[Rfam]
RNA sequence: GUGGUACUCAAAUGUGGAAGCACUCUUCGGACAACUGGAGGAAAAGUGCUACAAUAUUUGGGUGUUGC
Numbered sequence: 001g002u003g004g005u006a007c008u009c010a011a012a013u014g015u016g017g018a019a020g021c022a023c024u025c026u027u028c029g030g031a032c033a034a035c036u037g038g039a040g041g042a043a044a045a046g047u048g049c050u051a052c053a054a055u056a057u058u059u060g061g062g063u064g065u066u067g068c
Stems, first nucleotide, its partner, number of pairs: 004065009014055002017052001019050006026043003
The record is a 68-nucleotide RNA from Ailuropoda melanoleuca, which matches "mir-290 microRNA precursor family" in Rfam.
The family's consensus secondary structure was predicted with RNAalifold.
Rfam 15.1 lists 565 matches to the family in 128 species.
Its Rfam clan is "mir-290 clan".